This 108-nucleotide RNA belongs to the Rfam family "6S-Flavo RNA". The family's RNA type in Rfam is small RNA.
[Rfam]
RNA sequence: ACUCAACGCUAAUUUAAUUCGAAGAGGUGAGUUUUGGGUGCACAAGCAAGCCGUUCUAAACGGAUCCUUAAACACGCAGGUAGCCUCAAACAUGUUUAAUUCGAGUUU
Numbered sequence: 001a002c003u004c005a006a007c008g009c010u011a012a013u014u015u016a017a018u019u020c021g022a023a024g025a026g027g028u029g030a031g032u033u034u035u036g037g038g039u040g041c042a043c044a045a046g047c048a049a050g051c052c053g054u055u056c057u058a059a060a061c062g063g064a065u066c067c068u069u070a071a072a073c074a075c076g077c078a079g080g081u082a083g084c085c086u087c088a089a090a091c092a093u094g095u096u097u098a099a100u101u102c103g104a105g106u107u108u
Stems, first nucleotide, its partner, number of pairs: 024087005035078002038075002044069003051063003